[Rfam]
RNA sequence: GACCGUAAUUCGGUCGAUGGUGAGUGCGUAAAGACGCGGGGGCAGUACCCGCCGCCUCCACCAAGAAUACUCGGCACAGGUGCAGCCAUCCGCCCUAAUAGGUGGCCUUUGAUUUUAGACGGGUCGAGUAUUCUUGAUGGGGGCGAAAUAGGAUCGAUUUGCGCAUAGGCUUGAGAACGCGGUCGGGCAUGAUUCCACCCUUAUCGGGUCAAACCUCCAAGUGCGAACGAUAACUUUGCACAUGAGAUGGCCGUAGCGGCCUGA
Numbered sequence: 001g002a003c004c005g006u007a008a009u010u011c012g013g014u015c016g017a018u019g020g021u022g023a024g025u026g027c028g029u030a031a032a033g034a035c036g037c038g039g040g041g042g043c044a045g046u047a048c049c050c051g052c053c054g055c056c057u058c059c060a061c062c063a064a065g066a067a068u069a070c071u072c073g074g075c076a077c078a079g080g081u082g083c084a085g086c087c088a089u090c091c092g093c094c095c096u097a098a099u100a101g102g103u104g105g106c107c108u109u110u111g112a113u114u115u116u117a118g119a120c121g122g123g124u125c126g127a128g129u130a131u132u133c134u135u136g137a138u139g140g141g142g143g144c145g146a147a148a149u150a151g152g153a154u155c156g157a158u159u160u161g162c163g164c165a166u167a168g169g170c171u172u173g174a175g176a177a178c179g180c181g182g183u184c185g186g187g188c189a190u191g192a193u194u195c196c197a198c199c200c201u202u203a204u205c206g207g208g209u210c211a212a213a214c215c216u217c218c219a220a221g222u223g224c225g226a227a228c229g230a231u232a233a234c235u236u237u238g239c240a241c242a243u244g245a246g247a248u249g250g251c252c253g254u255a256g257c258g259g260c261c262u263g264a
Stems, first nucleotide, its partner, number of pairs: 001184005014174004026164003030160003036052005053145007185200003
Rfam assigns this 264-nucleotide sequence from Manganibacter manganicus to the family "permuted transfer-messenger RNA".
Bacterial tmRNA, also known as 10Sa RNA or SsrA, is named for its dual tRNA and mRNA-like properties.
It scores 130 bits against the family's covariance model.
The literature on the family includes a 1996 paper in RNA by Williams and Bartel, "Phylogenetic analysis of tmRNA secondary structure".